[Rfam]
RNA sequence: GGGUCAAUGAUGAGAUAUUUAUAUAGUCUGAAGAGAGGUGAUGACUUAAAAAAUCAUGCUCAAUAGAAUUAUACUUAGGUCC
Numbered sequence: 001g002g003g004u005c006a007a008u009g010a011u012g013a014g015a016u017a018u019u020u021a022u023a024u025a026g027u028c029u030g031a032a033g034a035g036a037g038g039u040g041a042u043g044a045c046u047u048a049a050a051a052a053a054u055c056a057u058g059c060u061c062a063a064u065a066g067a068a069u070u071a072u073a074c075u076u077a078g079g080u081c082c
Stems, first nucleotide, its partner, number of pairs: 001082004006075001008073002
RNA: Small nucleolar RNA SNORD115